Overview
Histone 3' UTR stem-loop: a 45-nucleotide sequence from Peromyscus maniculatus.

[Rfam]
RNA sequence: CCAAAGGCUCUUUUCAGAGCCACCCACAAAUCUCAAAAGAGCUGU
Numbered sequence: 001c002c003a004a005a006g007g008c009u010c011u012u013u014u015c016a017g018a019g020c021c022a023c024c025c026a027c028a029a030a031u032c033u034c035a036a037a038a039g040a041g042c043u044g045u
Base pairs, nucleotide, nucleotide: 006021007020008019009018010017011016
Gene Ontology term of the family: mRNA 3'-end processing by stem-loop binding and cleavage. The organism belongs to Peromyscus maniculatus, within Eukaryota. A reference for the family is Williams and Marzluff (1995), "The sequence of the stem and flanking sequences at the 3' end of histone mRNA are critical determinants for the binding of the stem-loop binding protein", Nucleic Acids Res. By type it is a cis-regulatory element. A search with the family's covariance model found it, with a score of 39 bits. About the family: The mRNAs of metazoan histone genes lack a poly-A tail. 3' end processing occurs at a site between a highly conserved stem-loop (modelled by this family) and a purine rich region around 20 nts downstream (the histone downstream element, or HDE).